[Rfam]
RNA: FMN riboswitch aptamer (RFN element)
Nucleotides: 130
Base pairs, nucleotide, nucleotide: 005126006125007124008123009122010121017045018044019043047110048109049100050099051064052063053062054061059098060097067076068075069074080096081095082094083093084092102113103112104111
Number, partner (000 for none) and nucleotide at each position: 001000a002000g003000c004000a005126g006125c007124c008123u009122u010121u011000g012000g013000g014000g015000c016000a017045a018044g019043g020000u021000g022000a023000a024000a025000a026000a027000g028000a029000g030000u031000u032000u033000u034000c035000u036000u037000u038000u039000a040000a041000u042000u043019c044018c045017u046000g047110a048109c049100c050099g051064g052063c053062g054061g055000u056000a057000u058000a059098g060097c061054c062053c063052g064051c065000g066000a067076g068075c069074c070000g071000a072000u073000u074069g075068g076067c077000a078000g079000a080096u081095c082094c083093g084092g085000c086000g087000u088000a089000a090000u091000u092084c093083c094082g095081g096080a097060g098059u099050c100049g101000a102113c103112a104111g105000u106000a107000a108000a109048g110047u111104c112103u113102g114000g115000a116000u117000g118000g119000g120000a121010a122009a123008a124007g125006g126005c127000a128000a129000a130000g